The family of this 104-nucleotide sequence from Vulpes vulpes is "mir-8834 microRNA precursor family". The family's consensus secondary structure was predicted with RNAalifold. The match comes from Rfam's covariance-model search (45 bits). The organism belongs to Vulpes, within Eukaryota.
[Rfam]
RNA sequence: UGGAACAACCGCAGUGGCGGGGCCAGCUGUGGAGCCCUGGUUUCAGCCCCCCGCAGUAACUACGGAGCUCUCCCUCUGCAGGGGCCUGGAUGCUCCAGGGCCAU
Numbered sequence: 001u002g003g004a005a006c007a008a009c010c011g012c013a014g015u016g017g018c019g020g021g022g023c024c025a026g027c028u029g030u031g032g033a034g035c036c037c038u039g040g041u042u043u044c045a046g047c048c049c050c051c052c053g054c055a056g057u058a059a060c061u062a063c064g065g066a067g068c069u070c071u072c073c074c075u076c077u078g079c080a081g082g083g084g085c086c087u088g089g090a091u092g093c094u095c096c097a098g099g100g101c102c103a104u
Base pairs, nucleotide, nucleotide: 002096003095004094006092007091009088011086012084016076017075019073020072021071022070025069026068027067028066030064031063033061037056038055039054